[Rfam]
RNA sequence: CUUUCGGUUCUUUUCAGAACCACAAACAUUCACAAAAGAGAGAUUU
Numbered sequence: 001c002u003u004u005c006g007g008u009u010c011u012u013u014u015c016a017g018a019a020c021c022a023c024a025a026a027c028a029u030u031c032a033c034a035a036a037a038g039a040g041a042g043a044u045u046u
Base pairs, nucleotide, nucleotide: 006021007020008019009018010017011016
RNA: Histone 3' UTR stem-loop
Organism: Acanthaster planci